RNA: Vault RNA
RNA sequence: GGGCCGGCUCUAGCCCAGCGGUUACUUCGGCUGUUUGCAAUUAUGUCGCAAAGUCGCCCUGUCUGGGGUUCGAUCCCGCGGGCACCCCUGGCCCCUUU
Numbered sequence: 001g002g003g004c005c006g007g008c009u010c011u012a013g014c015c016c017a018g019c020g021g022u023u024a025c026u027u028c029g030g031c032u033g034u035u036u037g038c039a040a041u042u043a044u045g046u047c048g049c050a051a052a053g054u055c056g057c058c059c060u061g062u063c064u065g066g067g068g069u070u071c072g073a074u075c076c077c078g079c080g081g082g083c084a085c086c087c088c089u090g091g092c093c094c095c096u097u098u
Base pairs, nucleotide, nucleotide: 002093003092004091005090006089007088013083014082015081016080018079019078020077021076027073028072029071030070